[Rfam]
RNA sequence: GCUGUCCUAGACCUGCCAGCACCACAGGCACAGCCAUUCUGCUGCGCCUGUGACAUCAGGGCAAAGAGCAAGUGGCUAUUUCUACGCUCAGUGUUCAGAAGUCAGUGAGCACUAAGAAUGGUUUAUAGCCUGACAUUC
Numbered sequence: 001g002c003u004g005u006c007c008u009a010g011a012c013c014u015g016c017c018a019g020c021a022c023c024a025c026a027g028g029c030a031c032a033g034c035c036a037u038u039c040u041g042c043u044g045c046g047c048c049u050g051u052g053a054c055a056u057c058a059g060g061g062c063a064a065a066g067a068g069c070a071a072g073u074g075g076c077u078a079u080u081u082c083u084a085c086g087c088u089c090a091g092u093g094u095u096c097a098g099a100a101g102u103c104a105g106u107g108a109g110c111a112c113u114a115a116g117a118a119u120g121g122u123u124u125a126u127a128g129c130c131u132g133a134c135a136u137u138c
Stems, first nucleotide, its partner, number of pairs: 003063006010056001024051004074130003082121003087116002092111006
Dot-bracket structure: ..((((((.(.............((((....................))))....).))))))..........(((.....(((..((...((((((........))))))...))..)))......)))........
RNA: Small nucleolar RNA SNORA43